[Rfam]
RNA sequence: GUGCUUGUGAUGAUGAAAAAUCUUUCCCCAACUUAUCGACAUAUGACGAUGUCAAAGCUGUUACAUUAGCCAGAUUUUCUGAUACAAGCAC
Dot-bracket structure: (((((((((.........................................................................)))))))))